The record is a 157-nucleotide sequence from Lachnobacterium bovis, which matches "glmS glucosamine-6-phosphate activated ribozyme aptamer" in Rfam. The match comes from Rfam's covariance-model search (76 bits). By type it is a riboswitch. Rfam describes the family as follows. This entry contains a glucosamine-6-phosphate activated ribozyme that is found in the mRNA for GlmS. GlmS is an enzyme that uses fructose-6-phosphate and glutamine to generate glucosamine-6-phosphate.
[Rfam]
Nucleotides: 157
Base pairs, nucleotide, nucleotide: 022039023038024037025036026035027034028033049082050081051080052079053078058070059069060068061067083100084099085098086097087096088095102147103146104145105144106143107142117132118131119130120129121128122127
Number, partner (000 for none) and nucleotide at each position: 001000u002000u003000a004000a005000a006000a007000a008000c009000u010000u011000u012000a013000g014000c015000g016000c017000c018000a019000u020000g021000u022039a023038c024037c025036a026035a027034u028033u029000c030000u031000a032000g033028a034027a035026u036025u037024g038023g039022u040000u041000g042000a043000c044000g045000a046000g047000g048000u049082u050081c051080c052079a053078a054000g055000u056000u057000a058070u059069c060068g061067a062000a063000u064000u065000a066000u067061u068060c069059g070058g071000c072000g073000g074000a075000u076000g077000c078053u079052u080051g081050g082049a083100c084099g085098u086097u087096u088095u089000u090000a091000u092000a093000u094000g095088g096087g097086a098085a099084c100083g101000c102147a103146u104145g105144u106143a107142g108000c109000a110000a111000c112000a113000a114000a115000a116000u117132a118131a119130g120129g121128g122127g123000g124000u125000a126000a127122c128121c129120u130119u131118u132117u133000a134000a135000c136000a137000a138000a139000a140000a141000a142107c143106u144105a145104c146103a147102u148000c149000c150000a151000u152000a153000u154000a155000a156000a157000u